[Rfam]
RNA sequence: GGCUCGGUGAUAAAUUGCCUUUUUGGCGAUAUACGCUAUUCUGAAUCUACAAUUUGUUGACAGUUUAAAUUUAUAUGAGAGCU
Numbered sequence: 001g002g003c004u005c006g007g008u009g010a011u012a013a014a015u016u017g018c019c020u021u022u023u024u025g026g027c028g029a030u031a032u033a034c035g036c037u038a039u040u041c042u043g044a045a046u047c048u049a050c051a052a053u054u055u056g057u058u059g060a061c062a063g064u065u066u067a068a069a070u071u072u073a074u075a076u077g078a079g080a081g082c083u
Stems, first nucleotide, its partner, number of pairs: 001083005
RNA: Small nucleolar RNA U54
Organism: Carnegiea gigantea